Shown here is a 75-nucleotide sequence from Micromonospora griseorubida, a member of the family "ASpks TB sRNA". A reference for the family is Arnvig and Young (2009), "Identification of small RNAs in Mycobacterium tuberculosis", Mol Microbiol. Rfam's curators put it in the seed alignment. The base pairs follow the family's consensus structure, which is taken from published work. By type it is an antisense RNA.
[Rfam]
RNA sequence: CUUCACCGAGCCGAGCCAGAGCGGUCGUCCCUCCGGUCGCCCCUGCCCGUAGGUGGCCAGCAGCGCCUCGGCCUC
Number, nucleotide and partner (000 for none) at each position: 001c000002u000003u000004c000005a000006c000007c000008g000009a000010g000011c000012c000013g000014a000015g025016c024017c023018a000019g000020a000021g000022c000023g017024g016025u015026c000027g000028u000029c000030c000031c071032u070033c000034c000035g000036g000037u000038c065039g064040c000041c000042c000043c060044u059045g058046c000047c056048c055049g054050u000051a000052g000053g000054u049055g048056g047057c000058c045059a044060g043061c000062a000063g000064c039065g038066c000067c000068u000069c000070g032071g031072c000073c000074u000075c000